RNA sequence: UUCUCGCUCAAAGAAUCGCAUUCGAAGCACACAAACAGAGAGGCCUUCCGAGGUCUCUCAGCUAGCAAUAGCUACUCUUGCUUCGGGAGAAAGUCCCCGGACACCCUUCAUUCUGAAGGAGUGCGGAAACGCGCCGCCAUAGAAGCAACACAGCGGCUUCUCUUCUACCAAUUCCUUGUCACUCCCUCCACCCUCUCGCCAUCUGUACUGCACUCUCGCCGACCUCAGAACUUCGAUUCUUAGUGGAGGAGAUCCCAUGGAUGACGAUACGAGUCCACGCUUCUCUACGACGUAUCUCGGAACUGGGCGAGGUGGGUUUGUGGGAGGUGCUUGGGCUGUUCUCGGCGUGCCAGGGAUGUUCUGGUCGGAGAGGUCAUUUCGUCGAGAAUAAUAGAUAUGCGAUUGCCUCUCCUGCUGCGCGAGUGGCAAAAGGGGUAACUCGAUGGGGCUUAUUCUUGAUGCGAGA
Numbered sequence: 001u002u003c004u005c006g007c008u009c010a011a012a013g014a015a016u017c018g019c020a021u022u023c024g025a026a027g028c029a030c031a032c033a034a035a036c037a038g039a040g041a042g043g044c045c046u047u048c049c050g051a052g053g054u055c056u057c058u059c060a061g062c063u064a065g066c067a068a069u070a071g072c073u074a075c076u077c078u079u080g081c082u083u084c085g086g087g088a089g090a091a092a093g094u095c096c097c098c099g100g101a102c103a104c105c106c107u108u109c110a111u112u113c114u115g116a117a118g119g120a121g122u123g124c125g126g127a128a129a130c131g132c133g134c135c136g137c138c139a140u141a142g143a144a145g146c147a148a149c150a151c152a153g154c155g156g157c158u159u160c161u162c163u164u165c166u167a168c169c170a171a172u173u174c175c176u177u178g179u180c181a182c183u184c185c186c187u188c189c190a191c192c193c194u195c196u197c198g199c200c201a202u203c204u205g206u207a208c209u210g211c212a213c214u215c216u217c218g219c220c221g222a223c224c225u226c227a228g229a230a231c232u233u234c235g236a237u238u239c240u241u242a243g244u245g246g247a248g249g250a251g252a253u254c255c256c257a258u259g260g261a262u263g264a265c266g267a268u269a270c271g272a273g274u275c276c277a278c279g280c281u282u283c284u285c286u287a288c289g290a291c292g293u294a295u296c297u298c299g300g301a302a303c304u305g306g307g308c309g310a311g312g313u314g315g316g317u318u319u320g321u322g323g324g325a326g327g328u329g330c331u332u333g334g335g336c337u338g339u340u341c342u343c344g345g346c347g348u349g350c351c352a353g354g355g356a357u358g359u360u361c362u363g364g365u366c367g368g369a370g371a372g373g374u375c376a377u378u379u380c381g382u383c384g385a386g387a388a389u390a391a392u393a394g395a396u397a398u399g400c401g402a403u404u405g406c407c408u409c410u411c412c413u414g415c416u417g418c419g420c421g422a423g424u425g426g427c428a429a430a431a432g433g434g435g436u437a438a439c440u441c442g443a444u445g446g447g448g449c450u451u452a453u454u455c456u457u458g459a460u461g462c463g464a465g466a
Stems, first nucleotide, its partner, number of pairs: 002466006008459004014404006022087001023085006038059009091451003095448004122133004146156001213372003219368006228361004239355001344351002406435005

Annotation:
RNase MRP: a 466-nucleotide RNA from Drepanopeziza brunnea. Rfam classes the family as a ribozyme.